[Rfam]
RNA: Small nucleolar RNA SNORA25
Organism: Cnephaeus nilssonii
RNA sequence: UGGUCAUUUCAAAGAGAGCUAUGGGCCUAAGACCAGGAGCUCUUAACGUUGUGGCCUAAAAUUGAAGAUCUCCAUAGGCUGUGAUGGAUACUCAGUAGUGCUAUUUUGUCCUGAGGAGAUAAAAGA
Numbered sequence: 001u002g003g004u005c006a007u008u009u010c011a012a013a014g015a016g017a018g019c020u021a022u023g024g025g026c027c028u029a030a031g032a033c034c035a036g037g038a039g040c041u042c043u044u045a046a047c048g049u050u051g052u053g054g055c056c057u058a059a060a061a062u063u064g065a066a067g068a069u070c071u072c073c074a075u076a077g078g079c080u081g082u083g084a085u086g087g088a089u090a091c092u093c094a095g096u097a098g099u100g101c102u103a104u105u106u107u108g109u110c111c112u113g114a115g116g117a118g119a120u121a122a123a124a125g126a
Stems, first nucleotide, its partner, number of pairs: 002056006014044007023034002069119005076112003084104004089100004